[Rfam]
RNA sequence: GACGGGGCAUGAAAGGCCCCUCAACAAACGACCCGGAAGCGAUUCCGCAGUAGGACUUGAGGGGAGCCGAUGUCGCGUCGUGCGUUUUGAAAAACGA
Number, nucleotide and partner (000 for none) at each position: 001g079002a078003c077004g076005g000006g074007g073008c072009a071010u070011g000012a000013a000014a000015g068016g067017c000018c000019c062020c061021u060022c059023a058024a057025c000026a000027a000028a000029c053030g000031a000032c000033c000034c047035g046036g045037a044038a043039g000040c000041g000042a000043u038044u037045c036046c035047g034048c000049a000050g000051u000052a000053g029054g000055a000056c000057u024058u023059g022060a021061g020062g019063g000064g000065a000066g000067c016068c015069g000070a010071u009072g008073u007074c006075g000076c004077g003078u002079c001080g000081u000082g000083c096084g095085u094086u000087u000088u000089g000090a000091a000092a000093a000094a085095c084096g083097a000
This 97-nucleotide part of an RNA from Haloprofundus sp. MHR1 belongs to the Rfam family "Archaeal large subunit ribosomal RNA".